Shown here is a 72-nucleotide RNA from Corynebacterium sphenisci, a member of the family "mraW RNA". The organism belongs to Corynebacterium sphenisci, within Bacteria. Pairs were carried over by alignment from the consensus structure, which is taken from published work. By type it is a cis-regulatory element.
[Rfam]
RNA sequence: CGCAAGGACUCUGCCCGGCCGGCCCCUGGUGUACUUCCCCGACACCAGGUUCCGGACGGGCAGGGCCCUGUG
Numbered sequence: 001c002g003c004a005a006g007g008a009c010u011c012u013g014c015c016c017g018g019c020c021g022g023c024c025c026c027u028g029g030u031g032u033a034c035u036u037c038c039c040c041g042a043c044a045c046c047a048g049g050u051u052c053c054g055g056a057c058g059g060g061c062a063g064g065g066c067c068c069u070g071u072g
Stems, first nucleotide, its partner, number of pairs: 001072004006068002009065009019055004025049008